Shown here is a 157-nucleotide RNA from Streptomyces tagetis, a member of the family "c-di-AMP riboswitch aptamer (ydaO/yuaA leader)".

[Rfam]
RNA sequence: ACUCGACACUCGCCGGCAGGAGCGGGGGACCCAGGUAAGUCGCCGCGCCGGACACCUCCGGAGCGGCUCGGGGUGAAGCCGUGCCCAUGAGGGCGUGGCCGGGCACCUCCCCGCCCGAACCCGACAGCUCACCUCGUAGGCGUAGGAGAGGGACUCA
Numbered sequence: 001a002c003u004c005g006a007c008a009c010u011c012g013c014c015g016g017c018a019g020g021a022g023c024g025g026g027g028g029a030c031c032c033a034g035g036u037a038a039g040u041c042g043c044c045g046c047g048c049c050g051g052a053c054a055c056c057u058c059c060g061g062a063g064c065g066g067c068u069c070g071g072g073g074u075g076a077a078g079c080c081g082u083g084c085c086c087a088u089g090a091g092g093g094c095g096u097g098g099c100c101g102g103g104c105a106c107c108u109c110c111c112c113g114c115c116c117g118a119a120c121c122c123g124a125c126a127g128c129u130c131a132c133c134u135c136g137u138a139g140g141c142g143u144a145g146g147a148g149a150g151g152g153a154c155u156c157a
Stems, first nucleotide, its partner, number of pairs: 003021002022137006032070001071122003079098006101116004